[Rfam]
RNA: MIR2118 microRNA precursor family
Organism: Hordeum vulgare
RNA sequence: GCUGGGAAGAGGAAGAAAGAGAGAGCUCAAGAGCACUGGGAAUGGGAACAUGGAGGAAAGCCCUGCUUGUUUGUUUGCACCUCUAGUGUUGGAGGUGCAAGUAUUAUGCAUGGAUACUUUCCUGAUGCCUCCCAUUCCUACUGUUGUUGUGCACUCCUUCCUCUUCCUUUUGGAU
Number, nucleotide and partner (000 for none) at each position: 001g000002c000003u000004g000005g000006g000007a000008a000009g166010a165011g164012g163013a162014a000015g160016a159017a158018a000019g000020a000021g156022a155023g154024a000025g000026c151027u000028c149029a148030a147031g000032a145033g144034c143035a142036c000037u140038g139039g138040g137041a136042a135043u134044g133045g132046g131047a130048a000049c127050a126051u125052g000053g123054a000055g122056g121057a120058a119059a118060g117061c000062c000063c000064u000065g000066c000067u000068u000069g000070u000071u000072u000073g000074u000075u000076u000077g000078c000079a000080c000081c000082u000083c000084u000085a000086g000087u000088g000089u000090u000091g000092g000093a000094g000095g000096u000097g000098c000099a000100a000101g000102u000103a000104u000105u000106a000107u000108g000109c000110a000111u000112g000113g000114a000115u000116a000117c060118u059119u058120u057121c056122c055123u053124g000125a051126u050127g049128c000129c000130u047131c046132c045133c044134a043135u042136u041137c040138c039139u038140a037141c000142u035143g034144u033145u032146g000147u030148u029149g028150u000151g026152c000153a000154c023155u022156c021157c000158u017159u016160c015161c000162u013163c012164u011165u010166c009167c000168u000169u000170u000171u000172g000173g000174a000175u000